[Rfam]
RNA sequence: AAAUGUGGUGAUGAUGGGCAAAACGUUCAACUGCUCUGAGUUGGCUGAAUGAAACUAGCCUUUCUGAACAUGU
Numbered sequence: 001a002a003a004u005g006u007g008g009u010g011a012u013g014a015u016g017g018g019c020a021a022a023a024c025g026u027u028c029a030a031c032u033g034c035u036c037u038g039a040g041u042u043g044g045c046u047g048a049a050u051g052a053a054a055c056u057a058g059c060c061u062u063u064c065u066g067a068a069c070a071u072g073u
Base pairs, nucleotide, nucleotide: 003071004070005069006068

Record summary
The record is a 73-nucleotide sequence from Jaculus jaculus, which matches "Small nucleolar RNA Z40" in Rfam. A reference for the family is Chen et al. (2003), "The high diversity of snoRNAs in plants: identification and comparative study of 120 snoRNA genes from Oryza sativa", Nucleic Acids Res. Rfam 15.1 lists 615 matches to the family in 541 species. It scores 82 bits against the family's covariance model. It is annotated as a C/D-box small nucleolar RNA.